[Rfam]
RNA sequence: AGGCAAUGAUGAGAGUCAUCUGGUCCGUGUUGUUGAUUCAUCGUGAAAACAAAGGAUGUCCUGAGCCU
Numbered sequence: 001a002g003g004c005a006a007u008g009a010u011g012a013g014a015g016u017c018a019u020c021u022g023g024u025c026c027g028u029g030u031u032g033u034u035g036a037u038u039c040a041u042c043g044u045g046a047a048a049a050c051a052a053a054g055g056a057u058g059u060c061c062u063g064a065g066c067c068u
Stems, first nucleotide, its partner, number of pairs: 001068004